[Rfam]
RNA: Streptomyces sRNA 4677
Nucleotides: 255
Base pairs, nucleotide, nucleotide: 007225008224009223010222016076017075018074019073089104090103091102092101093100094099119155120154121153122152123151181217182216183215184214185213187211188210189209192205193204194203195202227253228252229251230250231249
Number, partner (000 for none) and nucleotide at each position: 001000a002000g003000c004000u005000c006000c007225g008224g009223u010222g011000c012000c013000g014000u015000c016076g017075g018074c019073g020000c021000c022000u023000u024000c025000c026000a027000g028000a029000a030000u031000a032000a033000g034000a035000a036000a037000c038000g039000g040000g041000g042000g043000a044000g045000a046000a047000a048000g049000a050000a051000c052000c053000c054000c055000a056000c057000c058000a059000a060000g061000c062000c063000c064000c065000a066000c067000c068000c069000u070000u071000c072000c073019c074018g075017c076016c077000c078000g079000g080000g081000a082000c083000g084000u085000g086000c087000c088000a089104u090103c091102a092101c093100u094099c095000g096000g097000g098000c099094g100093g101092g102091u103090g104089a105000a106000c107000a108000u109000c110000a111000c112000c113000a114000u115000c116000u117000c118000a119155g120154c121153u122152g123151g124000a125000u126000u127000u128000u129000g130000g131000g132000a133000c134000c135000c136000u137000c138000a139000g140000c141000u142000c143000c144000u145000c146000u147000a148000c149000g150000c151123u152122c153121a154120g155119c156000c157000c158000a159000c160000g161000g162000a163000c164000a165000u166000c167000c168000c169000g170000a171000a172000a173000a174000c175000g176000a177000u178000u179000u180000c181217g182216g183215c184214c185213c186000c187211c188210g189209c190000u191000c192205g193204g194203g195202a196000c197000u198000g199000g200000c201000a202195u203194c204193c205192c206000g207000g208000u209189g210188c211187g212000a213185g214184g215183g216182c217181c218000u219000g220000a221000c222010c223009a224008c225007c226000a227253a228252g229251a230250a231249g232000c233000c234000a235000g236000c237000u238000a239000a240000a241000g242000g243000a244000a245000a246000c247000a248000c249231c250230u251229u252228c253227u254000c255000g